6S / SsrS RNA: a 182-nucleotide RNA from Jeotgalibacillus campisalis. For this family Rfam cites "6S RNA Mimics B-Form DNA to Regulate Escherichia coli RNA Polymerase" (Chen et al., Molecular Cell, 2017). NCBI's taxonomy places the organism under Bacteria, Bacillota, Caryophanales, Caryophanaceae, Jeotgalibacillus. A search with the family's covariance model found it, with a score of 63 bits.
[Rfam]
RNA sequence: CUGCGUUGUUCGUACUAACUAAGUAAGUUUUAACCUUUAAGCUGUAAUAGGGAGUUUUAAAUAAAAACGGAAUUGGCAAGCCUCCGUCUAUAAGACAAGGAGGACAUACAUGAAUGUUUUUGCGAACACCCACUUUGAGGAGUGGUGGUUUAAAACUUUCUUAAUCCAUACGGCAAAGGCGG
Numbered sequence: 001c002u003g004c005g006u007u008g009u010u011c012g013u014a015c016u017a018a019c020u021a022a023g024u025a026a027g028u029u030u031u032a033a034c035c036u037u038u039a040a041g042c043u044g045u046a047a048u049a050g051g052g053a054g055u056u057u058u059a060a061a062u063a064a065a066a067a068c069g070g071a072a073u074u075g076g077c078a079a080g081c082c083u084c085c086g087u088c089u090a091u092a093a094g095a096c097a098a099g100g101a102g103g104a105c106a107u108a109c110a111u112g113a114a115u116g117u118u119u120u121u122g123c124g125a126a127c128a129c130c131c132a133c134u135u136u137g138a139g140g141a142g143u144g145g146u147g148g149u150u151u152a153a154a155a156c157u158u159u160c161u162u163a164a165u166c167c168a169u170a171c172g173g174c175a176a177a178g179g180c181g182g
Stems, first nucleotide, its partner, number of pairs: 001182004006176004011172003026157004031152003034148002050131003054127004061121001064120006075109001081103005